[Rfam]
RNA sequence: CCUCCUCGAUCUGCUGCGGGCAGAUGAAGUGGAUGUGGCUGUCGAUGCCGCCGGCGGUGACGAUCAUGCCUUCGCCGGCGAUGAUCUCGGUGGCGGCGCCGAUCGGCAGCGUCACGCCCGGCUGGAUGUCGGGGUUGCCGGCCUUGCCGACGCCGAAGAUCAGGCCGUCCUUGAUGCCGAUGUCGGCCUUGACGAUACCCCAGUGGUCGACGAUGACGGCAUUCGUGACGACGGUGUCCAUGACGCCGUCGCGGGUCAGCUGCGACUGGCCCAUGCCGUCGCGGAUG
Numbered sequence: 001c002c003u004c005c006u007c008g009a010u011c012u013g014c015u016g017c018g019g020g021c022a023g024a025u026g027a028a029g030u031g032g033a034u035g036u037g038g039c040u041g042u043c044g045a046u047g048c049c050g051c052c053g054g055c056g057g058u059g060a061c062g063a064u065c066a067u068g069c070c071u072u073c074g075c076c077g078g079c080g081a082u083g084a085u086c087u088c089g090g091u092g093g094c095g096g097c098g099c100c101g102a103u104c105g106g107c108a109g110c111g112u113c114a115c116g117c118c119c120g121g122c123u124g125g126a127u128g129u130c131g132g133g134g135u136u137g138c139c140g141g142c143c144u145u146g147c148c149g150a151c152g153c154c155g156a157a158g159a160u161c162a163g164g165c166c167g168u169c170c171u172u173g174a175u176g177c178c179g180a181u182g183u184c185g186g187c188c189u190u191g192a193c194g195a196u197a198c199c200c201c202a203g204u205g206g207u208c209g210a211c212g213a214u215g216a217c218g219g220c221a222u223u224c225g226u227g228a229c230g231a232c233g234g235u236g237u238c239c240a241u242g243a244c245g246c247c248g249u250c251g252c253g254g255g256u257c258a259g260c261u262g263c264g265a266c267u268g269g270c271c272c273a274u275g276c277c278g279u280c281g282c283g284g285a286u287g
Stems, first nucleotide, its partner, number of pairs: 001287001003285001005283001007281003012158001015155002018076002022072002030053003034050002037048001040045001057069003077148002081144001083142001085140001090138005095130003103124001105123003109119001111117002164270004171262001173260001175258002177255002186220003190216001200209001225252001228249001230247001234246003
Notes:
The record is a 287-nucleotide sequence from Herbaspirillum sp. SJZ107, which matches "5' ureB small RNA" in Rfam. The organism belongs to Herbaspirillum, within Bacteria. Rfam 15.1 lists 4,812 matches to the family in 4,480 species. A search with the family's covariance model found it, with a score of 125 bits.